[Rfam]
RNA sequence: UUCAAACAAAGGCAAACCUAUUGAAAAAUAGGGACGCAAAGUCACAGGUCUAAAGUUAUAGUUAAUUAUGAUGGCUGGGCUGCUUGA
Dot-bracket structure: ...........((...((((((....))))))...))..((((.((((((....((((....))))...)))..)))))))......
c-di-GMP-I riboswitch aptamer: an 87-nucleotide RNA from Anaerobacillus alkaliphilus.
Gene Ontology term of the family: cyclic-di-GMP binding.
The family's consensus secondary structure is taken from published work.